[Rfam]
RNA sequence: CCUGAAAGCUCGUUUCAACGGGACCAAGGGCCUGUAAACGGCGGAGGGAACUCUGACCUUCUUAAGGUAGAAAUCUGCCUUAGUAAAAUUGGGCUAGUUGCUGGAAAGUCUCGAAGAAAUUUAGUAGUAAAUUAUUUUGGUGACGAAAUAAUUAUCUGAAAAUCUAAAUAGAGAGACAAUCAGCAGGAAAGAUUUCUGGAAUUACGACCCAGAAAAAUCCUCAGAGACUAUACGCCCAACAUCCGCAAAGGAUGAAGAUAUAGUCCGAACCUUGCAGCGAUGCAAGG
Numbered sequence: 001c002c003u004g005a006a007a008g009c010u011c012g013u014u015u016c017a018a019c020g021g022g023a024c025c026a027a028g029g030g031c032c033u034g035u036a037a038a039c040g041g042c043g044g045a046g047g048g049a050a051c052u053c054u055g056a057c058c059u060u061c062u063u064a065a066g067g068u069a070g071a072a073a074u075c076u077g078c079c080u081u082a083g084u085a086a087a088a089u090u091g092g093g094c095u096a097g098u099u100g101c102u103g104g105a106a107a108g109u110c111u112c113g114a115a116g117a118a119a120u121u122u123a124g125u126a127g128u129a130a131a132u133u134a135u136u137u138u139g140g141u142g143a144c145g146a147a148a149u150a151a152u153u154a155u156c157u158g159a160a161a162a163u164c165u166a167a168a169u170a171g172a173g174a175g176a177c178a179a180u181c182a183g184c185a186g187g188a189a190a191g192a193u194u195u196c197u198g199g200a201a202u203u204a205c206g207a208c209c210c211a212g213a214a215a216a217a218u219c220c221u222c223a224g225a226g227a228c229u230a231u232a233c234g235c236c237c238a239a240c241a242u243c244c245g246c247a248a249a250g251g252a253u254g255a256a257g258a259u260a261u262a263g264u265c266c267g268a269a270c271c272u273u274g275c276a277g278c279g280a281u282g283c284a285a286g287g
Stems, first nucleotide, its partner, number of pairs: 001022004029079003089239004094234001099185006109176004186220002195213005224266001226265005242252003272285005

Overview:
The family of this 287-nucleotide RNA sequence from Candidatus Naiadarchaeum limnaeum is "Group I catalytic intron". The base pairs follow the family's consensus structure, which is taken from published work. Group I catalytic introns are large self-splicing ribozymes. They catalyse their own excision from mRNA, tRNA and rRNA precursors in a wide range of organisms. The core secondary structure consists of 9 paired regions (P1-P9). These fold to essentially two domains - the P4-P6 domain (formed from the stacking of P5, P4, P6 and P6a helices) and the P3-P9 domain (formed from the P8, P3, P7 and P9 helices). The match comes from Rfam's covariance-model search (88 bits). The organism belongs to Candidatus Naiadarchaeum, within Archaea.